[Rfam]
This 75-nucleotide RNA sequence from Caenorhabditis briggsae belongs to the Rfam family "mir-35 microRNA precursor family".
RNA sequence: GGACCUCCGCUGGUUUUUCCCGCGGUGAUAUUCCGAAGCAAGUGGUUAUCACCGGGUGAAAACUGGUAGAGGUCC
Number, nucleotide and partner (000 for none) at each position: 001g075002g074003a073004c072005c071006u070007c069008c000009g067010c066011u065012g064013g063014u062015u061016u060017u059018u058019c000020c000021c056022g000023c054024g053025g052026u051027g050028a049029u048030a047031u000032u000033c045034c044035g043036a000037a000038g000039c000040a000041a000042g000043u035044g034045g033046u000047u030048a029049u028050c027051a026052c025053c024054g023055g000056g021057u000058g018059a017060a016061a015062a014063c013064u012065g011066g010067u009068a000069g007070a006071g005072g004073u003074c002075c001

Background:
Pairs were carried over by alignment from the consensus structure, which was predicted with RNAalifold. It scores 70 bits against the family's covariance model.